[Rfam]
RNA sequence: AGCUUUGCACAGUGGAAGUAUUGUAGCCAAUGAGGUUUAUCUUACACUCAAUUAUUGCUAAUUGAAAAUUUUCCCAAUACCCGGCUGUGAUGACUUAAAAUACAAUCAGCAUUGGCAAUUUUUGACAUUCUCUAUGGAGA
Numbered sequence: 001a002g003c004u005u006u007g008c009a010c011a012g013u014g015g016a017a018g019u020a021u022u023g024u025a026g027c028c029a030a031u032g033a034g035g036u037u038u039a040u041c042u043u044a045c046a047c048u049c050a051a052u053u054a055u056u057g058c059u060a061a062u063u064g065a066a067a068a069u070u071u072u073c074c075c076a077a078u079a080c081c082c083g084g085c086u087g088u089g090a091u092g093a094c095u096u097a098a099a100a101u102a103c104a105a106u107c108a109g110c111a112u113u114g115g116c117a118a119u120u121u122u123u124g125a126c127a128u129u130c131u132c133u134a135u136g137g138a139g140a
Stems, first nucleotide, its partner, number of pairs: 020052004026047001034042002084116003087112003091108003095104001129140004

This 140-nucleotide RNA from Aotus nancymaae belongs to the Rfam family "U4 spliceosomal RNA". U4 small nuclear RNA (U4 snRNA) is a component of the major U2-dependent spliceosome. The base pairs follow the family's consensus structure, which is taken from published work. It is annotated as a spliceosomal small nuclear RNA.